Record summary:
The record is a 65-nucleotide RNA sequence from Strigops habroptila, which matches "MAT2A 3'UTR stem loop F" in Rfam. Lineage of the source: Eukaryota > Bilateria > Craniata > Telluraves > Strigops. It is annotated as a cis-regulatory element. The family's consensus secondary structure is taken from published work. It scores 61 bits against the family's covariance model. The literature on the family includes a 2011 paper in Genome Res by Parker et al., "New families of human regulatory RNA structures identified by comparative analysis of vertebrate genomes".

[Rfam]
RNA sequence: CCCGGGAGCGGGCGCUUUGGCCGGUGUGGUACAGAGAAGCCGGCUUGUUUACUGCCUGUCCCGGG
Numbered sequence: 001c002c003c004g005g006g007a008g009c010g011g012g013c014g015c016u017u018u019g020g021c022c023g024g025u026g027u028g029g030u031a032c033a034g035a036g037a038a039g040c041c042g043g044c045u046u047g048u049u050u051a052c053u054g055c056c057u058g059u060c061c062c063g064g065g
Base pairs, nucleotide, nucleotide: 001065002064003063004062005061006060007059009058010057011056012055014049016047019045020044021043022042023041024040025039026032027031